[Rfam]
RNA sequence: UGCCUUUCUGUGUUGCCCGUUCAUUGUGUCUCUGGAUGAAUGUGGCGUCAUCAAAGGCAUACAGCAGCAGCUCUUGGAUCGGCCUUAGUGAGAGUGCCAUUCAGUGACCUCAUUCUAAGUUCAAUACCAAGAACAGUU
Numbered sequence: 001u002g003c004c005u006u007u008c009u010g011u012g013u014u015g016c017c018c019g020u021u022c023a024u025u026g027u028g029u030c031u032c033u034g035g036a037u038g039a040a041u042g043u044g045g046c047g048u049c050a051u052c053a054a055a056g057g058c059a060u061a062c063a064g065c066a067g068c069a070g071c072u073c074u075u076g077g078a079u080c081g082g083c084c085u086u087a088g089u090g091a092g093a094g095u096g097c098c099a100u101u102c103a104g105u106g107a108c109c110u111c112a113u114u115c116u117a118a119g120u121u122c123a124a125u126a127c128c129a130a131g132a133a134c135a136g137u138u
Base pairs, nucleotide, nucleotide: 002058003057004056005055006054007053011050012049014047015046016045017044018042019041020040021039022038023037024036025035073131074130075129076128078125079124081122082121087120089118091116092115093113